Background: The family of this 119-nucleotide sequence from Potentilla freyniana is "Plastid-psbA-1 3UTR RNA".
RNA sequence: CUUCCAUCUAUCGAUGGAUAAUAUUUUGGUCUUAGUAUAUAUGAGUUCGUGACAGUUUUGAAAGUAAAGGAGCAAUACUAAAUUUCUUGUUAUAUUAAGAAGUUUGGUGUUGCUCCUUU
Numbered sequence: 001c002u003u004c005c006a007u008c009u010a011u012c013g014a015u016g017g018a019u020a021a022u023a024u025u026u027u028g029g030u031c032u033u034a035g036u037a038u039a040u041a042u043g044a045g046u047u048c049g050u051g052a053c054a055g056u057u058u059u060g061a062a063a064g065u066a067a068a069g070g071a072g073c074a075a076u077a078c079u080a081a082a083u084u085u086c087u088u089g090u091u092a093u094a095u096u097a098a099g100a101a102g103u104u105u106g107g108u109g110u111u112g113c114u115c116c117u118u119u
Stems, first nucleotide, its partner, number of pairs: 003018005066119013080105003084101005

Annotation:
The family's consensus secondary structure was predicted with LocARNA. Rfam's curators write: Plastid psbA-1 is a non-coding RNA (ncRNA) present in plastids. It was identified in inverted repeat sequences in the 3 prime untranslate region (3UTR) of photosystem II quinone-binding protein (psbA).